A member of the RNA family "Small nucleolar RNA SNORA4" from Macaca nemestrina, 136 nucleotides long. The family's RNA type in Rfam is H/ACA-box small nucleolar RNA. The family has 7 seed sequences and 290 matches in Rfam 15.1. ACA4 is a member of the H/ACA class of snoRNA that guide the sites of modification of uridines to pseudouridines. It scores 98 bits against the family's covariance model.

RNA sequence: CAACCAAAAGCUAAUUUUUUUGUGGGGAAAGCUUUCUAAAUAACCUUUACCAAUUUGGGCUACUUGGAAGAGUAAAGGAAAGACCGCACUCCAGAGGGUUAUACCAAUAGUUCAGUACUAUUUUGUGGCCUACAUU
Numbered sequence: 001c002a003a004c005c006a007a008a009a010g011c012u013a014a015u016u017u018u019u020u021u022g023u024g025g026g027g028a029a030a031g032c033u034u035u036c037u038a039a040a041u042a043a044c045c046u047u048u049a050c051c052a053a054u055u056u057g058g059g060c061u062a063c064u065u066g067g068a069a070g071a072g073u074a075a076a077g078g079a080a081a082g083a084c085c086g087c088a089c090u091c092c093a094g095a096g097g098g099u100u101a102u103a104c105c106a107a108u109a110g111u112u113c114a115g116u117a118c119u120a121u122u123u124u125g126u127g128g129c130c131u132a133c134a135u136u
Stems, first nucleotide, its partner, number of pairs: 004067004012062002015059003022055001026051002029048001031044001033042001081131002084128005096113007